[Rfam]
RNA sequence: AAAAUAGACUAUCCUAUCGCUUUUUAAAGAGGAAAGUCCGAACAACAAAGAGCAGCGUGCUUCCUAACUGGAAGGGGGAUCUUCGGAUUCAACAGCAAGUGCCACAGAAAAUUACCGCCUUCGGGUAAGGGUGAAAAGGUGGGGUAAGAGCCCACCGCUGGUUUGGUGACAAAACAGGCUUAGGUAAACCUCACGCGUUGCAAGAUCAAAUAGGCUAGCUGCCGCAAGGCAAAAGGGUGGCUCGUCCGAUGCUAGUGGGUAGAUUGCUACAGGUAAACAGUGAUGUUUAUCGAAGAUAAAUGAUAGGACGGUGGGUAACCAUUGACAGAAUUCGGCUUAUCGGUUUAUUUUCUCU
Numbered sequence: 001a002a003a004a005u006a007g008a009c010u011a012u013c014c015u016a017u018c019g020c021u022u023u024u025u026a027a028a029g030a031g032g033a034a035a036g037u038c039c040g041a042a043c044a045a046c047a048a049a050g051a052g053c054a055g056c057g058u059g060c061u062u063c064c065u066a067a068c069u070g071g072a073a074g075g076g077g078g079a080u081c082u083u084c085g086g087a088u089u090c091a092a093c094a095g096c097a098a099g100u101g102c103c104a105c106a107g108a109a110a111a112u113u114a115c116c117g118c119c120u121u122c123g124g125g126u127a128a129g130g131g132u133g134a135a136a137a138g139g140u141g142g143g144g145u146a147a148g149a150g151c152c153c154a155c156c157g158c159u160g161g162u163u164u165g166g167u168g169a170c171a172a173a174a175c176a177g178g179c180u181u182a183g184g185u186a187a188a189c190c191u192c193a194c195g196c197g198u199u200g201c202a203a204g205a206u207c208a209a210a211u212a213g214g215c216u217a218g219c220u221g222c223c224g225c226a227a228g229g230c231a232a233a234a235g236g237g238u239g240g241c242u243c244g245u246c247c248g249a250u251g252c253u254a255g256u257g258g259g260u261a262g263a264u265u266g267c268u269a270c271a272g273g274u275a276a277a278c279a280g281u282g283a284u285g286u287u288u289a290u291c292g293a294a295g296a297u298a299a300a301u302g303a304u305a306g307g308a309c310g311g312u313g314g315g316u317a318a319c320c321a322u323u324g325a326c327a328g329a330a331u332u333c334g335g336c337u338u339a340u341c342g343g344u345u346u347a348u349u350u351u352c353u354c355u
Stems, first nucleotide, its partner, number of pairs: 001351010011340001012308007020029003034338003038335005043200004050243004055196005060074005075093001077090005094191002099189002101185003115130002117126003138156006157179001158177003162173004204265004214256006235247004272291008
The record is a 355-nucleotide RNA sequence from Aquirufa antheringensis, which matches "Bacterial RNase P class A" in Rfam. Taxonomically the source falls in Aquirufa (Bacteria, Pseudomonadati, Bacteroidota, Flectobacillaceae). The family's RNA type in Rfam is ribozyme.